[Rfam]
RNA sequence: CCGGGACACCGACCGACACCUUGGGCAGGGGCGGGGGACCCAGGAUUUUCUGCCGUCUCCCACGGCUAGGGGUGAAGCCGCGUCAGCGGCCGGGCCAACCUCACGGGUCCGAACCCGACAGCUCACCUCGCAGGCGUGCGGAGAGGGAAAAA
Numbered sequence: 001c002c003g004g005g006a007c008a009c010c011g012a013c014c015g016a017c018a019c020c021u022u023g024g025g026c027a028g029g030g031g032c033g034g035g036g037g038a039c040c041c042a043g044g045a046u047u048u049u050c051u052g053c054c055g056u057c058u059c060c061c062a063c064g065g066c067u068a069g070g071g072g073u074g075a076a077g078c079c080g081c082g083u084c085a086g087c088g089g090c091c092g093g094g095c096c097a098a099c100c101u102c103a104c105g106g107g108u109c110c111g112a113a114c115c116c117g118a119c120a121g122c123u124c125a126c127c128u129c130g131c132a133g134g135c136g137u138g139c140g141g142a143g144a145g146g147g148a149a150a151a152a
Stems, first nucleotide, its partner, number of pairs: 001134002031131006041069001070116003078089004092110004
RNA: c-di-AMP riboswitch aptamer (ydaO/yuaA leader)